[Rfam]
RNA: MIR5084 microRNA precursor family
Organism: Triticum aestivum
RNA sequence: UUCUGGGUUGAGAUCCUCUGCAGUACCGUAUGAUGCUGUAGUGUCGAUGCCAUGUGGGGCCAGGUCCCACAUGGCAUCGACUGUACAUCAUCGUACGGUACUGCAGAGGAUCCUAACCCCUU
Numbered sequence: 001u002u003c004u005g006g007g008u009u010g011a012g013a014u015c016c017u018c019u020g021c022a023g024u025a026c027c028g029u030a031u032g033a034u035g036c037u038g039u040a041g042u043g044u045c046g047a048u049g050c051c052a053u054g055u056g057g058g059g060c061c062a063g064g065u066c067c068c069a070c071a072u073g074g075c076a077u078c079g080a081c082u083g084u085a086c087a088u089c090a091u092c093g094u095a096c097g098g099u100a101c102u103g104c105a106g107a108g109g110a111u112c113c114u115a116a117c118c119c120c121u122u
Base pairs, nucleotide, nucleotide: 005119006118007117008116009115012112013111014110015109016108017107018106019105020104021103022102023101024100025099026098027097028096029095030094031093032092033091034090035089037087038086039085040084051073052072053071054070055069056068057067058066059065060064